RNA sequence: GGUAUCCUUCGGGGCAGGGUGAAAAUCCCGACCGGCGGUGAUGGUUCAUCAGAACCUCAGUCCGUGACCCGAGUUGGCACAUGCCAAAGCGGUGGAUUCGGUGUGAUUCCGAAGCCGACAGUAUAGUCUGGAUGGGAGAAGGAUAAG
Numbered sequence: 001g002g003u004a005u006c007c008u009u010c011g012g013g014g015c016a017g018g019g020u021g022a023a024a025a026u027c028c029c030g031a032c033c034g035g036c037g038g039u040g041a042u043g044g045u046u047c048a049u050c051a052g053a054a055c056c057u058c059a060g061u062c063c064g065u066g067a068c069c070c071g072a073g074u075u076g077g078c079a080c081a082u083g084c085c086a087a088a089g090c091g092g093u094g095g096a097u098u099c100g101g102u103g104u105g106a107u108u109c110c111g112a113a114g115c116c117g118a119c120a121g122u123a124u125a126g127u128c129u130g131g132a133u134g135g136g137a138g139a140a141g142g143a144u145a146a147g
Base pairs, nucleotide, nucleotide: 003145004144005143006142007141008140009139010138017029018028019027031127032126033117034116035065036064037063038062060115061114069092070091097113098112099111100110101109119130120129121128
RNA: FMN riboswitch aptamer (RFN element)